[Rfam]
RNA: SAM riboswitch aptamer (S box leader)
Organism: Priestia filamentosa
RNA sequence: UUCUUAUCACGAGAAGUGGAGGGACUGGCCCUAUGAAACUUCAGCAACCAGUUACGUUUGUAACAAGGUGCUAAAUCCAGUAAGCAUAUUUGCUUAGAAGAUAAGAA
Numbered sequence: 001u002u003c004u005u006a007u008c009a010c011g012a013g014a015a016g017u018g019g020a021g022g023g024a025c026u027g028g029c030c031c032u033a034u035g036a037a038a039c040u041u042c043a044g045c046a047a048c049c050a051g052u053u054a055c056g057u058u059u060g061u062a063a064c065a066a067g068g069u070g071c072u073a074a075a076u077c078c079a080g081u082a083a084g085c086a087u088a089u090u091u092g093c094u095u096a097g098a099a100g101a102u103a104a105g106a107a
Stems, first nucleotide, its partner, number of pairs: 001107008013042005021031003025080004043072004048068002051064004076099001081096006